SAM/SAH riboswitch aptamer: a 49-nucleotide RNA from Sulfitobacter donghicola.
Its family is annotated with S-adenosylmethionine metabolic process and regulation of gene expression in the Gene Ontology.
Lineage of the source: Bacteria > Alphaproteobacteria > Rhodobacterales > Roseobacteraceae > Sulfitobacter donghicola.
A reference for the family is Weickhmann et al. (2019), "The structure of the SAM/SAH-binding riboswitch", Nucleic Acids Res.
RNA sequence: UACGCACUACAACGGCUUCCUGACGUGGUGCUUGAUUUAUAUUGGAGCA
Numbered sequence: 001u002a003c004g005c006a007c008u009a010c011a012a013c014g015g016c017u018u019c020c021u022g023a024c025g026u027g028g029u030g031c032u033u034g035a036u037u038u039a040u041a042u043u044g045g046a047g048c049a
Stems, first nucleotide, its partner, number of pairs: 004031007013022002015048003019045002